[Rfam]
RNA sequence: GGUCUCAAGUGAUGGAGCAAUGACCAGGGAAGACUGUGAUUAAACUGGGAUGUAUUUGUUCUGUCUGAUGGGGCC
Numbered sequence: 001g002g003u004c005u006c007a008a009g010u011g012a013u014g015g016a017g018c019a020a021u022g023a024c025c026a027g028g029g030a031a032g033a034c035u036g037u038g039a040u041u042a043a044a045c046u047g048g049g050a051u052g053u054a055u056u057u058g059u060u061c062u063g064u065c066u067g068a069u070g071g072g073g074c075c
Stems, first nucleotide, its partner, number of pairs: 001075007011065005017059002019056004024049002027046002032041001
Small nucleolar RNA ZL2: a 75-nucleotide RNA from Molossus molossus. Rfam 15.1 lists 126 matches to the family in 125 species. It is annotated as a C/D-box small nucleolar RNA. The match comes from Rfam's covariance-model search (77 bits).